[Rfam]
RNA sequence: CUAAUACCAGUGCUUAAUUCCCAAGUAUUCAAAUUGGGAAGCGGGGGAACCAAAUUUUCCUGGGGCGUAUCGGAGCGUGGCGAUUGAAUGCAGAGGCCGCCAAGCUUCGUAGGGAACCAUCUUAUCCCGAGCCCGUCAGCUAACCUCGUCAGCGUCAGAUGGGUCAAUU
Numbered sequence: 001c002u003a004a005u006a007c008c009a010g011u012g013c014u015u016a017a018u019u020c021c022c023a024a025g026u027a028u029u030c031a032a033a034u035u036g037g038g039a040a041g042c043g044g045g046g047g048a049a050c051c052a053a054a055u056u057u058u059c060c061u062g063g064g065g066c067g068u069a070u071c072g073g074a075g076c077g078u079g080g081c082g083a084u085u086g087a088a089u090g091c092a093g094a095g096g097c098c099g100c101c102a103a104g105c106u107u108c109g110u111a112g113g114g115a116a117c118c119a120u121c122u123u124a125u126c127c128c129g130a131g132c133c134c135g136u137c138a139g140c141u142a143a144c145c146u147c148g149u150c151a152g153c154g155u156c157a158g159a160u161g162g163g164u165c166a167a168u169u
Base pairs, nucleotide, nucleotide: 011154012153013152014151018040019039020038021037022036023035024034041149042148043147044146045145046144051062052061063134064133065132071109072108073107074106075105076104112128113127114126115125
Source information:
c-di-AMP riboswitch aptamer (ydaO/yuaA leader): a 169-nucleotide sequence from Tumebacillus flagellatus. Gene Ontology terms of the family: regulation of gene expression and cyclic-di-AMP binding. On this family, see Barrick et al., Proc Natl Acad Sci U S A 2004: "New RNA motifs suggest an expanded scope for riboswitches in bacterial genetic control". A search with the family's covariance model found it, with a score of 76 bits.